[Rfam]
RNA sequence: AACAGAGUAGGAAAUAAAGCGUUAAGUGUUGAUGGGAUGGGAUGUUGCCCUCAAACGAAAAAUUGUCUUGGCAAUUUGCGGUUUUAUUUCUGCAUUCGCUGCA
Numbered sequence: 001a002a003c004a005g006a007g008u009a010g011g012a013a014a015u016a017a018a019g020c021g022u023u024a025a026g027u028g029u030u031g032a033u034g035g036g037a038u039g040g041g042a043u044g045u046u047g048c049c050c051u052c053a054a055a056c057g058a059a060a061a062a063u064u065g066u067c068u069u070g071g072c073a074a075u076u077u078g079c080g081g082u083u084u085u086a087u088u089u090c091u092g093c094a095u096u097c098g099c100u101g102c103a
Base pairs, nucleotide, nucleotide: 003101004100005099010091011090012089013088014087015086016085017084018083019082020080021079022078026056027055029054030053031052032051034050035049036048040097041096042095043094044093060077061076062075063074064073065072066071
Source information:
This 103-nucleotide sequence from Carnobacterium antarcticum belongs to the Rfam family "THF (Tetrahydrofolate) riboswitch aptamer". Tetrahydrofolate (THF) riboswitch was first reported for Ames et al. as an RNA motif in 5' untranslated (5'-UTR)regions of folate transport and biosynthesis genes in Firmicutes genomes. The organism belongs to Carnobacterium, within Bacteria.